[Rfam]
RNA sequence: CGCAGAUGCCCAUUUCAUGGGCGUUUCCUCCCCGACUUGGACCGCCCUGCCCGGGCGGUCCUUUUUCUUUUUAACG
Numbered sequence: 001c002g003c004a005g006a007u008g009c010c011c012a013u014u015u016c017a018u019g020g021g022c023g024u025u026u027c028c029u030c031c032c033c034g035a036c037u038u039g040g041a042c043c044g045c046c047c048u049g050c051c052c053g054g055g056c057g058g059u060c061c062u063u064u065u066u067c068u069u070u071u072u073a074a075c076g
Stems, first nucleotide, its partner, number of pairs: 008022004039061009